The family of this 294-nucleotide sequence from Drosophila erecta is "Nuclear RNase P". NCBI's taxonomy places the organism under Eukaryota, Mandibulata, Allotriocarida, Acalyptratae, Sophophora. Rfam classes the family as a ribozyme. Clan: RNaseP clan.

[Rfam]
RNA sequence: UCAGUUGCAAACUAGCAUCUGGGGCUCACACAACGAGUAUCUGAUUACUCCACGAACCAUUGCCCCGGGAAGGUCUGAGAAUUGGCCGAGCAUGCUGUUUGUUGCGGCUCCAUUUCCCAGCAGGAAACCUGUGUGAUUGCAGGGCGAAAGUACCAGAAAUCCUGCUACCAGGCGUUGCCGUUCCCUCGGGGACCGCCGCCUGGUUGGCAUUGAAACCUUUCGUGGCCAGCGUUUUUAGUGCGAUGUGCUUGCUGCCUUCCAGGCAGAACUCAAUUCAGACUAAUCUGUGACUGA
Numbered sequence: 001u002c003a004g005u006u007g008c009a010a011a012c013u014a015g016c017a018u019c020u021g022g023g024g025c026u027c028a029c030a031c032a033a034c035g036a037g038u039a040u041c042u043g044a045u046u047a048c049u050c051c052a053c054g055a056a057c058c059a060u061u062g063c064c065c066c067g068g069g070a071a072g073g074u075c076u077g078a079g080a081a082u083u084g085g086c087c088g089a090g091c092a093u094g095c096u097g098u099u100u101g102u103u104g105c106g107g108c109u110c111c112a113u114u115u116c117c118c119a120g121c122a123g124g125a126a127a128c129c130u131g132u133g134u135g136a137u138u139g140c141a142g143g144g145c146g147a148a149a150g151u152a153c154c155a156g157a158a159a160u161c162c163u164g165c166u167a168c169c170a171g172g173c174g175u176u177g178c179c180g181u182u183c184c185c186u187c188g189g190g191g192a193c194c195g196c197c198g199c200c201u202g203g204u205u206g207g208c209a210u211u212g213a214a215a216c217c218u219u220u221c222g223u224g225g226c227c228a229g230c231g232u233u234u235u236u237a238g239u240g241c242g243a244u245g246u247g248c249u250u251g252c253u254g255c256c257u258u259c260c261a262g263g264c265a266g267a268a269c270u271c272a273a274u275u276c277a278g279a280c281u282a283a284u285c286u287g288u289g290a291c292u293g294a
Stems, first nucleotide, its partner, number of pairs: 001294004007288003012251001014249005021066005035050005075278005084227004113127005128143006144223007164208003252266005